Overview
Shown here is a 119-nucleotide RNA sequence from Macleaya microcarpa, a member of the family "Plastid-psbA-1 3UTR RNA". Plastid psbA-1 is a non-coding RNA (ncRNA) present in plastids. It was identified in inverted repeat sequences in the 3 prime untranslate region (3UTR) of photosystem II quinone-binding protein (psbA). On this family, see Richter et al., Plant Commun 2023: "Retrograde signaling in plants: A critical review focusing on the GUN pathway and beyond".
RNA sequence: UGUCGAAGCUCCAUCUACAAAUGGAUAAGCCUUCGGUCUUAGUGUAUAUGAAUCGUUGAAGUUGAAGGAGCAAUACCGAAUUUCUUGUUCUAUCAAGAGGGUGGGUAUUGCUCCUUCAU
Number, nucleotide and partner (000 for none) at each position: 001u000002g000003u000004c000005g000006a000007a000008g000009c000010u025011c024012c023013a022014u021015c000016u000017a000018c000019a000020a000021a014022u013023g012024g011025a010026u000027a000028a000029g000030c000031c000032u000033u000034c000035g000036g000037u000038c000039u000040u000041a000042g000043u000044g000045u000046a000047u000048a000049u000050g000051a000052a000053u000054c000055g000056u000057u000058g000059a000060a000061g000062u000063u000064g117065a116066a115067g114068g113069a112070g111071c110072a109073a108074u107075a106076c105077c000078g000079a102080a000081u000082u099083u098084c097085u096086u095087g000088u000089u000090c000091u000092a000093u000094c000095a086096a085097g084098a083099g082100g000101g000102u079103g000104g000105g076106u075107a074108u073109u072110g071111c070112u069113c068114c067115u066116u065117c064118a000119u000